RNA sequence: UCAGUGAGUAGAAGCUGUCAGCCGGCACAUUCCGGUGGGUCAUUGCUCUGCCG
Numbered sequence: 001u002c003a004g005u006g007a008g009u010a011g012a013a014g015c016u017g018u019c020a021g022c023c024g025g026c027a028c029a030u031u032c033c034g035g036u037g038g039g040u041c042a043u044u045g046c047u048c049u050g051c052c053g
Stems, first nucleotide, its partner, number of pairs: 006048005015038001019039001021036005

Notes: Xanthine riboswitch aptamer (NMT1 RNA): a 53-nucleotide RNA from Pluralibacter gergoviae. A reference for the family is Yu and Breaker (2020), "A bacterial riboswitch class senses xanthine and uric acid to regulate genes associated with purine oxidation", RNA.